[Rfam]
RNA sequence: UGUGGCUGGUGGUCCAGCAUAUCGCAUCACGUUCUCGCCUUUUACUAGAGCAUGCCGUGUCGGGCCGUCGCUUGAAAGCCACGUUACAUAAUUUCUCGCUCCUCAGCGUCGCCUGAGAC
Numbered sequence: 001u002g003u004g005g006c007u008g009g010u011g012g013u014c015c016a017g018c019a020u021a022u023c024g025c026a027u028c029a030c031g032u033u034c035u036c037g038c039c040u041u042u043u044a045c046u047a048g049a050g051c052a053u054g055c056c057g058u059g060u061c062g063g064g065c066c067g068u069c070g071c072u073u074g075a076a077a078g079c080c081a082c083g084u085u086a087c088a089u090a091a092u093u094u095c096u097c098g099c100u101c102c103u104c105a106g107c108g109u110c111g112c113c114u115g116a117g118a119c
Stems, first nucleotide, its partner, number of pairs: 003081004009068007017060003028054002031051005102117005
This 119-nucleotide RNA sequence from Auricularia subglabra belongs to the Rfam family "U5 spliceosomal RNA". Rfam describes the family as follows. U5 RNA is a component of both types of known spliceosome. The precise function of this molecule is unknown, though it is known that the 5' loop is required for splice site selection and p220 binding, and that both the 3' stem-loop and the Sm site are important for Sm protein binding and cap methylation. The match comes from Rfam's covariance-model search (64 bits). A reference for the family is Hinz et al. (1996), "Domain analysis of human U5 RNA. Cap trimethylation, protein binding, and spliceosome assembly", J Biol Chem. The family's RNA type in Rfam is spliceosomal small nuclear RNA.